Shown here is a 419-nucleotide part of an RNA from uncultured eukaryote HF0200_37F04, a member of the family "Eukaryotic large subunit ribosomal RNA".
[Rfam]
RNA sequence: UCGUAUGAAAUUAAACGUGAUGACCCGCUGAAUUUAAGCAUAUAAGUAAGCGGAGGAAAAGAAAAUGAAAAUGAUUCCCUUAGUAAUGGCGAAUGAACCGGGAGUCGCUCAAUUUGUAAAUCCGGAACCUUGGUUCCUGAAUUGUAGUCUUGAUAAGCAUUGCUAGUGUUCAGCCAGGCGCAAGUCCCUUUGGAAGAAUGCGUUAGAGAGGGUGAGAAUCCCGUACCGAAGUUUGGCAGGAAUACGUUCGGCGUGCUCAUUAGAGUCGCGUACUUUGGAAGUGGUGCGCAAAAUGGGAGGUAAUCUUCUUCUAAAGCUAAAUACUGACUCGAGACCGAUAGCAAACAAGUACCGUGAGGGAAAGGUGAAAAGGACUUUGGAAAGAGAGUUAAAAGUGUCUGAAAUCGCUGAGAGGGAAG
Numbered sequence: 001u002c003g004u005a006u007g008a009a010a011u012u013a014a015a016c017g018u019g020a021u022g023a024c025c026c027g028c029u030g031a032a033u034u035u036a037a038g039c040a041u042a043u044a045a046g047u048a049a050g051c052g053g054a055g056g057a058a059a060a061g062a063a064a065a066u067g068a069a070a071a072u073g074a075u076u077c078c079c080u081u082a083g084u085a086a087u088g089g090c091g092a093a094u095g096a097a098c099c100g101g102g103a104g105u106c107g108c109u110c111a112a113u114u115u116g117u118a119a120a121u122c123c124g125g126a127a128c129c130u131u132g133g134u135u136c137c138u139g140a141a142u143u144g145u146a147g148u149c150u151u152g153a154u155a156a157g158c159a160u161u162g163c164u165a166g167u168g169u170u171c172a173g174c175c176a177g178g179c180g181c182a183a184g185u186c187c188c189u190u191u192g193g194a195a196g197a198a199u200g201c202g203u204u205a206g207a208g209a210g211g212g213u214g215a216g217a218a219u220c221c222c223g224u225a226c227c228g229a230a231g232u233u234u235g236g237c238a239g240g241a242a243u244a245c246g247u248u249c250g251g252c253g254u255g256c257u258c259a260u261u262a263g264a265g266u267c268g269c270g271u272a273c274u275u276u277g278g279a280a281g282u283g284g285u286g287c288g289c290a291a292a293a294u295g296g297g298a299g300g301u302a303a304u305c306u307u308c309u310u311c312u313a314a315a316g317c318u319a320a321a322u323a324c325u326g327a328c329u330c331g332a333g334a335c336c337g338a339u340a341g342c343a344a345a346c347a348a349g350u351a352c353c354g355u356g357a358g359g360g361a362a363a364g365g366u367g368a369a370a371a372g373g374a375c376u377u378u379g380g381a382a383a384g385a386g387a388g389u390u391a392a393a394a395g396u397g398u399c400u401g402a403a404a405u406c407g408c409u410g411a412g413a414g415g416g417a418a419g
Stems, first nucleotide, its partner, number of pairs: 024055001025053005035042002065072002076103004086094002107317003114147006121140002124137004154259001156257004161253004166245006174236006184201001187200001189198002204208001211221002268289007295312005352359002375386004
The family's consensus secondary structure is taken from published work.
Taxonomically the source falls in named eukaryotic clones (Eukaryota).
Rfam's curators put it in the seed alignment.
Its Rfam clan is "LSU clan".